A member of the RNA family "mir-33 microRNA precursor family" from Polypterus senegalus, 66 nucleotides long. Rfam 15.1 lists 1,467 matches to the family in 815 species. The literature on the family includes a 2009 paper in BMC Genomics by Li et al., "Direct sequencing and expression analysis of a large number of miRNAs in Aedes aegypti and a multi-species survey of novel mosquito miRNAs". NCBI's taxonomy places the organism under Eukaryota, Craniata, Gnathostomata, Cladistia, Polypterus. The base pairs follow the family's consensus structure, which was predicted with PFOLD.

RNA sequence: CUGUUGUGCAUUGUGGUUGCAUUGCAUGUCUGUUCUUCAGUGCAAUGCAUCUGCCGUGCAGUACAG
Numbered sequence: 001c002u003g004u005u006g007u008g009c010a011u012u013g014u015g016g017u018u019g020c021a022u023u024g025c026a027u028g029u030c031u032g033u034u035c036u037u038c039a040g041u042g043c044a045a046u047g048c049a050u051c052u053g054c055c056g057u058g059c060a061g062u063a064c065a066g
Stems, first nucleotide, its partner, number of pairs: 001066004006062001007060005013054004019048001021046007
Dot-bracket structure: ((((.((((((.((((..(.(((((((............))))))).)..)))).))))).)))))